[Rfam]
Rfam assigns this 79-nucleotide RNA from Parambassis ranga to the family "mir-219 microRNA precursor family". The literature on the family includes a 2003 paper in Genome Biol by Lai et al., "Computational identification of Drosophila microRNA genes". Rfam 15.1 lists 1,318 matches to the family in 774 species. A search with the family's covariance model found it, with a score of 69 bits. Pairs were carried over by alignment from the consensus structure, which was predicted with RNAalifold.
RNA sequence: UUUGGUGCUGAUUGUCCAAACGCAAUUUCUGUGUUACUUCUCCAUUUCCAGGAGUUGUGGCUGGACAUCAUGCACCCAG
Numbered sequence: 001u002u003u004g005g006u007g008c009u010g011a012u013u014g015u016c017c018a019a020a021c022g023c024a025a026u027u028u029c030u031g032u033g034u035u036a037c038u039u040c041u042c043c044a045u046u047u048c049c050a051g052g053a054g055u056u057g058u059g060g061c062u063g064g065a066c067a068u069c070a071u072g073c074a075c076c077c078a079g
Stems, first nucleotide, its partner, number of pairs: 002078001004076004009070004014066005021059011